Shown here is a 72-nucleotide RNA from Nylanderia fulva, a member of the family "mir-87 microRNA precursor family".
RNA sequence: UACAGGUGGGCCUGACUCUUUGCUCGGCCCGUUUUUAACAUUGGGUGAGCAAAGUUUCAGGUGUGUUUGUGA
Numbered sequence: 001u002a003c004a005g006g007u008g009g010g011c012c013u014g015a016c017u018c019u020u021u022g023c024u025c026g027g028c029c030c031g032u033u034u035u036u037a038a039c040a041u042u043g044g045g046u047g048a049g050c051a052a053a054g055u056u057u058c059a060g061g062u063g064u065g066u067u068u069g070u071g072a
Stems, first nucleotide, its partner, number of pairs: 002070006010062006018054004023049004028045003
Its family is annotated with RISC complex and miRNA-mediated post-transcriptional gene silencing in the Gene Ontology.